[Rfam]
RNA sequence: GGACGGUGACGAUUCUAUGUGAUAGGUCUCGUUCGUCGUAAUUGGCUCAAUUGGGCCUUGCCGACCAUACUGAUAUAUCACCACCCAUACUCUGAAUCC
Numbered sequence: 001g002g003a004c005g006g007u008g009a010c011g012a013u014u015c016u017a018u019g020u021g022a023u024a025g026g027u028c029u030c031g032u033u034c035g036u037c038g039u040a041a042u043u044g045g046c047u048c049a050a051u052u053g054g055g056c057c058u059u060g061c062c063g064a065c066c067a068u069a070c071u072g073a074u075a076u077a078u079c080a081c082c083a084c085c086c087a088u089a090c091u092c093u094g095a096a097u098c099c
Stems, first nucleotide, its partner, number of pairs: 001099003049059002
Dot-bracket structure: (((.............................................((.......)).....................................)))
The record is a 99-nucleotide RNA sequence from Carpinus fangiana, which matches "Small nucleolar RNA Z43" in Rfam. On this family, see Chen et al., Nucleic Acids Res 2003: "The high diversity of snoRNAs in plants: identification and comparative study of 120 snoRNA genes from Oryza sativa". Rfam classes the family as a C/D-box small nucleolar RNA. The organism belongs to Carpinus, within Eukaryota. A search with the family's covariance model found it, with a score of 86 bits. Pairs were carried over by alignment from the consensus structure, which was predicted with PFOLD.